[Rfam]
RNA sequence: AGGCUUCAGAAUUUUCUACAACCUGCGCAAGCAGAAACUUAAAACCAAUACGCAGGUUCACGUUUUCCCUGGUGUUGGCGCAAUAUUCGCGCACCCCGGCCUCGGU
Numbered sequence: 001a002g003g004c005u006u007c008a009g010a011a012u013u014u015u016c017u018a019c020a021a022c023c024u025g026c027g028c029a030a031g032c033a034g035a036a037a038c039u040u041a042a043a044a045c046c047a048a049u050a051c052g053c054a055g056g057u058u059c060a061c062g063u064u065u066u067c068c069c070u071g072g073u074g075u076u077g078g079c080g081c082a083a084u085a086u087u088c089g090c091g092c093a094c095c096c097c098g099g100c101c102u103c104g105g106u
Base pairs, nucleotide, nucleotide: 020058021057022056023055024054025053026052071095072094073093078092079091080090081089
Rfam assigns this 106-nucleotide RNA from Serratia rubidaea to the family "ArcZ RNA".
Pairs were carried over by alignment from the consensus structure, which was predicted with PFOLD.
About the family: This RNA was discovered in E. coli during a large scale screen. SraH expression is highly abundant in stationary phase, but low levels could be detected in exponentially growing cells as well. ArcZ RNA function as an activator of the alternative sigma factor RpoS as a response of stress. ArcZ afects and is also affected by the ArcA-ArcB regulon (aerobic/anaerobic-sensing ArcA-ArcB two-component).
Its family is annotated with regulation of translation and protein binding in the Gene Ontology.